Annotation:
The family of this 201-nucleotide RNA from Paenibacillus sp. 598K is "c-di-AMP riboswitch aptamer (ydaO/yuaA leader)". Rfam 15.1 lists 7,607 matches to the family in 2,262 species.
RNA sequence: UUUCCAGUUUCGCUUAAUCUUCGAUUUGAAGAACGGGGGAACCAAAAUCGCCAGUCUGCUCUCCCACUUGCAGCUGUCCGAUUUUCUUCCUUGGGGUGAAUUCGCGAAGAAGCCAUCGAUCGCAAACGGCUCGCUUCCGAUAGGGCGACUCUCAUGUCCGAACCCGUCAGCUAACCUCGUCAGCGUCCAUAGAGAGAUCAC
Number, nucleotide and partner (000 for none) at each position: 001u000002u000003u000004c000005c000006a000007g000008u000009u000010u000011c185012g184013c183014u182015u000016a000017a000018u032019c031020u030021u029022c028023g000024a000025u000026u000027u000028g022029a021030a020031g019032a018033a180034c179035g178036g177037g176038g175039g000040a000041a000042c000043c093044a092045a000046a000047a000048u000049c000050g000051c000052c000053a000054g000055u000056c000057u000058g000059c000060u000061c000062u000063c000064c000065c000066a000067c000068u000069u000070g000071c000072a000073g000074c000075u000076g000077u000078c000079c000080g000081a000082u000083u000084u000085u000086c000087u000088u000089c000090c000091u000092u044093g043094g165095g164096g163097u000098g000099a000100a000101u000102u140103c139104g138105c000106g000107a000108a000109g000110a000111a000112g000113c000114c000115a000116u000117c000118g000119a000120u000121c000122g000123c000124a000125a000126a000127c000128g000129g000130c000131u000132c000133g000134c000135u000136u000137c000138c104139g103140a102141u000142a000143g159144g158145g157146c156147g000148a000149c000150u000151c000152u000153c000154a000155u000156g146157u145158c144159c143160g000161a000162a000163c096164c095165c094166g000167u000168c000169a000170g000171c000172u000173a000174a000175c038176c037177u036178c035179g034180u033181c000182a014183g013184c012185g011186u000187c000188c000189a000190u000191a000192g000193a000194g000195a000196g000197a000198u000199c000200a000201c000

It scores 86 bits against the family's covariance model.